This 73-nucleotide RNA from Sphingomonas ginsenosidivorax belongs to the Rfam family "Makes More Granules Regulator RNA (mmgR)". NCBI's taxonomy places the organism under Bacteria, Pseudomonadota, Alphaproteobacteria, Sphingomonadales, Sphingomonas. The family has 87 seed sequences and 1,791 matches in Rfam 15.1. The match comes from Rfam's covariance-model search (47 bits).
RNA sequence: AGGUGACGCCUUUCAGGCAUCCUCUCCUAAAAACUUCCCGGGUCGCUUUUGGCGGCCCCUUUUUUUGUCUGAA
Numbered sequence: 001a002g003g004u005g006a007c008g009c010c011u012u013u014c015a016g017g018c019a020u021c022c023u024c025u026c027c028u029a030a031a032a033a034c035u036u037c038c039c040g041g042g043u044c045g046c047u048u049u050u051g052g053c054g055g056c057c058c059c060u061u062u063u064u065u066u067g068u069c070u071g072a073a
Stems, first nucleotide, its partner, number of pairs: 008018004040058008